The family of this 94-nucleotide RNA sequence from Daucus carota is "Small nucleolar RNA snoR26".
The base pairs follow the family's consensus structure, which was predicted with WAR.
[Rfam]
RNA sequence: AGAUCAGCUAUGAUGAUUGCUUCUUUUUGUUAUCCUUGCACUUUGAGUUUCACUGUGAAGAGAUCUUACGGCCAAAGUUGUUUCUGAGCUGCUG
Numbered sequence: 001a002g003a004u005c006a007g008c009u010a011u012g013a014u015g016a017u018u019g020c021u022u023c024u025u026u027u028u029g030u031u032a033u034c035c036u037u038g039c040a041c042u043u044u045g046a047g048u049u050u051c052a053c054u055g056u057g058a059a060g061a062g063a064u065c066u067u068a069c070g071g072c073c074a075a076a077g078u079u080g081u082u083u084c085u086g087a088g089c090u091g092c093u094g
Stems, first nucleotide, its partner, number of pairs: 003093001005091004
On this family, see Brown et al., RNA 2001: "Multiple snoRNA gene clusters from Arabidopsis". A search with the family's covariance model found it, with a score of 49 bits. The source organism's lineage runs through Eukaryota, Magnoliopsida, Apiaceae, Daucinae and Daucus carota.